[Rfam]
Description
Rfam assigns this 119-nucleotide sequence from Chaetura pelagica to the family "Small nucleolar RNA SNORA55". ACA55 is a member of the H/ACA class of snoRNA that guide the sites of modification of uridines to pseudouridines. By type it is an H/ACA-box small nucleolar RNA. NCBI's taxonomy places the organism under Eukaryota, Vertebrata, Strisores, Apodinae, Chaetura.
RNA sequence: GCGUCUGAAUCUUACCCAGUCCUUAUGCUGGACUGGGGAGCAAUGAUGGAAAGCAGAGGGAGUCCAGACAAGCUCCCUUGCACCACAGUGGGACUGGUCUCUACACCUUUGCAACACUU
Numbered sequence: 001g002c003g004u005c006u007g008a009a010u011c012u013u014a015c016c017c018a019g020u021c022c023u024u025a026u027g028c029u030g031g032a033c034u035g036g037g038g039a040g041c042a043a044u045g046a047u048g049g050a051a052a053g054c055a056g057a058g059g060g061a062g063u064c065c066a067g068a069c070a071a072g073c074u075c076c077c078u079u080g081c082a083c084c085a086c087a088g089u090g091g092g093a094c095u096g097g098u099c100u101c102u103a104c105a106c107c108u109u110u111g112c113a114a115c116a117c118u119u
Stems, first nucleotide, its partner, number of pairs: 002048004013039001015037005021031002053112006066100004071095002081090002